[Rfam]
RNA: purD RNA motif
Organism: Helicobacter cholecystus
Nucleotides: 130
Stems, first nucleotide, its partner, number of pairs: 003073002006070005020058004027051002036047003086105007
Number, partner (000 for none) and nucleotide at each position: 001000g002000u003073a004072g005000a006070g007069g008068g009067u010066c011000u012000u013000g014000u015000g016000u017000g018000u019000u020058g021057g022056c023055a024000u025000u026000c027051c028050c029000g030000u031000u032000u033000g034000c035000a036047a037046c038045c039000c040000u041000u042000a043000g044000u045038g046037g047036u048000g049000a050028g051027g052000u053000u054000c055023u056022g057021c058020c059000c060000c061000u062000a063000a064000u065000a066010g067009a068008u069007c070006c071000c072004u073003u074000c075000u076000c077000a078000u079000c080000u081000u082000a083000u084000a085000u086105g087104u088103g089102u090101a091100g092099u093000a094000u095000u096000u097000a098000g099092g100091c101090u102089a103088c104087g105086c106000a107000u108000u109000a110000a111000g112000g113000g114000g115000u116000a117000g118000c119000g120000g121000u122000u123000a124000u125000u126000u127000g128000g129000g130000u